The family of this 98-nucleotide RNA from Cytobacillus dafuensis is "Guanidine-I riboswitch aptamer".
[Rfam]
RNA sequence: UAAAAUGUUUUCUAGGGUUCCGCAGUUUCAUACUGGACAGGUCCGAGAGAAAACUCACAGUAUUGACUGUGUCACGGAGGGAUAAAAGCCUGGGAGAU
Numbered sequence: 001u002a003a004a005a006u007g008u009u010u011u012c013u014a015g016g017g018u019u020c021c022g023c024a025g026u027u028u029c030a031u032a033c034u035g036g037a038c039a040g041g042u043c044c045g046a047g048a049g050a051a052a053a054c055u056c057a058c059a060g061u062a063u064u065g066a067c068u069g070u071g072u073c074a075c076g077g078a079g080g081g082a083u084a085a086a087a088g089c090c091u092g093g094g095a096g097a098u
Stems, first nucleotide, its partner, number of pairs: 007054006015044002020041002022038001023035004056071006073093001075096001079091003
It scores 83 bits against the family's covariance model.
The source organism's lineage runs through Bacteria, Bacillati, Bacillota, Caryophanales and Cytobacillus.
The base pairs follow the family's consensus structure.
The literature on the family includes a 2017 paper in Mol Cell by Nelson et al., "Metabolism of Free Guanidine in Bacteria Is Regulated by a Widespread Riboswitch Class".